The family of this 146-nucleotide sequence from Candidatus Brocadiaceae bacterium S225 is "c-di-GMP-I riboswitch aptamer".
Pairs were carried over by alignment from the consensus structure, which is taken from published work.
The match comes from Rfam's covariance-model search (38 bits).
The literature on the family includes a 2007 paper in Nucleic Acids Res by Weinberg et al., "Identification of 22 candidate structured RNAs in bacteria using the CMfinder comparative genomics pipeline".
GEMM was predicted in a large-scale screen for bacterial structured RNA regulatory elements.
[Rfam]
RNA sequence: AACGGACAAAGGCAAACUCCGGGUGACCGAGGGGGCGCAAAGUAGAGGAUCUUUUGCUCUUGCACGGAUUAUAGAAUUGUAUGGAAAAGGAAAUCCGUAAACCGUGCAAUUGUAUGGUUCUAGAAAAAGACAGCCCUACUGCCGAA
Number, nucleotide and partner (000 for none) at each position: 001a000002a000003c000004g000005g000006a000007c000008a000009a000010a000011g000012g038013c037014a000015a000016a000017c033018u032019c031020c029021g028022g027023g000024u000025g000026a000027c022028c021029g020030a000031g019032g018033g017034g000035g000036c000037g013038c012039a000040a000041a140042g139043u138044a137045g000046a000047g135048g134049a000050u130051c129052u000053u000054u000055u125056g000057c000058u000059c000060u000061u000062g000063c000064a000065c000066g000067g000068a000069u000070u000071a000072u000073a000074g000075a000076a000077u000078u000079g000080u000081a000082u000083g000084g000085a000086a000087a000088a000089g000090g000091a000092a000093a000094u000095c000096c000097g000098u000099a000100a000101a000102c000103c000104g000105u000106g000107c000108a000109a000110u000111u000112g000113u000114a000115u000116g000117g000118u000119u000120c000121u000122a000123g000124a000125a055126a000127a000128a000129g051130a050131c000132a000133g000134c048135c047136c000137u044138a043139c042140u041141g000142c000143c000144g000145a000146a000